[Rfam]
RNA sequence: GGCCCGUUCGUCUAUCGGUUAGGACAAAAGAUUUUCAUUCUUUAAAGAGGGGUUCGACUCCCCUACGGGCUA
Numbered sequence: 001g002g003c004c005c006g007u008u009c010g011u012c013u014a015u016c017g018g019u020u021a022g023g024a025c026a027a028a029a030g031a032u033u034u035u036c037a038u039u040c041u042u043u044a045a046a047g048a049g050g051g052g053u054u055c056g057a058c059u060c061c062c063c064u065a066c067g068g069g070c071u072a
Base pairs, nucleotide, nucleotide: 001071002070003069004068005067006066007065010025011024012023013022027043028042029041030040031039048064049063050062051061052060
This 72-nucleotide sequence from Bacteroidetes bacterium B1(2017) belongs to the Rfam family "tRNA". The family's RNA type in Rfam is transfer RNA. The organism belongs to Bacteroidota, within Bacteria.